[Rfam]
RNA sequence: AUAAUAAUAGGUGAUGGAGUUCACCUUUAACUGCUUAUUUAAGCUGGAUCAAUAAAUUGAUCAAAAUAUAAACCGCUUAUUUUUAAGCUGAUGACUCCUACCAAGAU
Dot-bracket structure: .........[[[[..((((((]]]].................................................((((......))))....)))))).........
Numbered sequence: 001a002u003a004a005u006a007a008u009a010g011g012u013g014a015u016g017g018a019g020u021u022c023a024c025c026u027u028u029a030a031c032u033g034c035u036u037a038u039u040u041a042a043g044c045u046g047g048a049u050c051a052a053u054a055a056a057u058u059g060a061u062c063a064a065a066a067u068a069u070a071a072a073c074c075g076c077u078u079a080u081u082u083u084u085a086a087g088c089u090g091a092u093g094a095c096u097c098c099u100a101c102c103a104a105g106a107u
Stems, first nucleotide, its partner, number of pairs: 010025004016098006075088004
Rfam assigns this 107-nucleotide RNA sequence to the family "Fluoride riboswitch aptamer (crcB RNA motif)". For this family Rfam cites "Widespread genetic switches and toxicity resistance proteins for fluoride" (Baker et al., Science, 2012). It scores 58 bits against the family's covariance model.